[Rfam]
RNA sequence: GAGAUGAUAGUAUGGUAGAAAGAAAGAUUUAUAUUUUUCUUCUACCAUACUAUCUAGUAUUGUCAUUGUACUGUAUAAAGUUUACUGC
Numbered sequence: 001g002a003g004a005u006g007a008u009a010g011u012a013u014g015g016u017a018g019a020a021a022g023a024a025a026g027a028u029u030u031a032u033a034u035u036u037u038u039c040u041u042c043u044a045c046c047a048u049a050c051u052a053u054c055u056a057g058u059a060u061u062g063u064c065a066u067u068g069u070a071c072u073g074u075a076u077a078a079a080g081u082u083u084a085c086u087g088c
Stems, first nucleotide, its partner, number of pairs: 006054015022038005